Annotation
A member of the RNA family "SAM riboswitch aptamer (S box leader)" from Acetivibrio thermocellus, 106 nucleotides long. Pairs were carried over by alignment from the consensus structure, which is taken from published work. Taxonomically the source falls in Acetivibrio thermocellus (Bacteria, Bacillati, Acetivibrionaceae, Acetivibrio). Clan: SAM clan.
RNA sequence: ACCUUAUCAAGAGAGGCGGAGGGAAUGGGCCCUAUGAAACCCGGCAACCGGCAGAAUUGUAUCGGUGCCAAUUCCUACAGGAUGUAAAAGUCCUGACAGAUGAGGA
Numbered sequence: 001a002c003c004u005u006a007u008c009a010a011g012a013g014a015g016g017c018g019g020a021g022g023g024a025a026u027g028g029g030c031c032c033u034a035u036g037a038a039a040c041c042c043g044g045c046a047a048c049c050g051g052c053a054g055a056a057u058u059g060u061a062u063c064g065g066u067g068c069c070a071a072u073u074c075c076u077a078c079a080g081g082a083u084g085u086a087a088a089a090g091u092c093c094u095g096a097c098a099g100a101u102g103a104g105g106a
Stems, first nucleotide, its partner, number of pairs: 002105007013042001015041002021032003026077004043069004048065002051060003073098001078095006